RNA: mir-194 microRNA precursor family
RNA sequence: UGGUGCUUGCUGGCUGUAACAGCAACUCCAUGUGGAAGUUGCCUGGGUUCCAGUGGAGAUGCUGUUACCUGCAGAGAGUUA
Numbered sequence: 001u002g003g004u005g006c007u008u009g010c011u012g013g014c015u016g017u018a019a020c021a022g023c024a025a026c027u028c029c030a031u032g033u034g035g036a037a038g039u040u041g042c043c044u045g046g047g048u049u050c051c052a053g054u055g056g057a058g059a060u061g062c063u064g065u066u067a068c069c070u071g072c073a074g075a076g077a078g079u080u081a
Stems, first nucleotide, its partner, number of pairs: 010074003016068008026058006033052003